[Rfam]
The record is a 127-nucleotide RNA from Glycine soja, which matches "MIR1520 microRNA precursor family" in Rfam. The source organism's lineage runs through Eukaryota, Streptophytina, Mesangiospermae, Fabaceae and Glycine subgen. Soja.
RNA sequence: AUACAAAGAAACAUUAAUUAUUAUGUGUUACGUUUUGAUUGAACAUGAAAAUGUGGGCCUAAGAGACAAUUCUAACAUUUCUUUAUUCAUCGUCUAAUCCAAACGUAACAUGUGAUCCUCAAUAUUU
Numbered sequence: 001a002u003a004c005a006a007a008g009a010a011a012c013a014u015u016a017a018u019u020a021u022u023a024u025g026u027g028u029u030a031c032g033u034u035u036u037g038a039u040u041g042a043a044c045a046u047g048a049a050a051a052u053g054u055g056g057g058c059c060u061a062a063g064a065g066a067c068a069a070u071u072c073u074a075a076c077a078u079u080u081c082u083u084u085a086u087u088c089a090u091c092g093u094c095u096a097a098u099c100c101a102a103a104c105g106u107a108a109c110a111u112g113u114g115a116u117c118c119u120c121a122a123u124a125u126u127u
Base pairs, nucleotide, nucleotide: 020116021115022114023113025111026110029107030106031105033103034102035101038098039097040096
Notes
Clan: MIR1520 microRNA precursor clan. The family's consensus secondary structure was predicted with RNAalifold.